[Rfam]
RNA sequence: UCCUAGAGAAACAUAGAAGCUUGUAUAAGGUCAAAAUACGGUUGACCGUCUCUACCCAGCACCGUAAAUGCUGGUCUAUAAGUGAAGAAGAGCGGAUA
Numbered sequence: 001u002c003c004u005a006g007a008g009a010a011a012c013a014u015a016g017a018a019g020c021u022u023g024u025a026u027a028a029g030g031u032c033a034a035a036a037u038a039c040g041g042u043u044g045a046c047c048g049u050c051u052c053u054a055c056c057c058a059g060c061a062c063c064g065u066a067a068a069u070g071c072u073g074g075u076c077u078a079u080a081a082g083u084g085a086a087g088a089a090g091a092g093c094g095g096a097u098a
Stems, first nucleotide, its partner, number of pairs: 019083007029047006056074006
A member of the RNA family "Purine riboswitch aptamer" from Enterococcus faecalis, 98 nucleotides long. From the family's description: Riboswitches are metabolite binding domains within certain messenger RNAs that serve as precision sensors for their corresponding targets.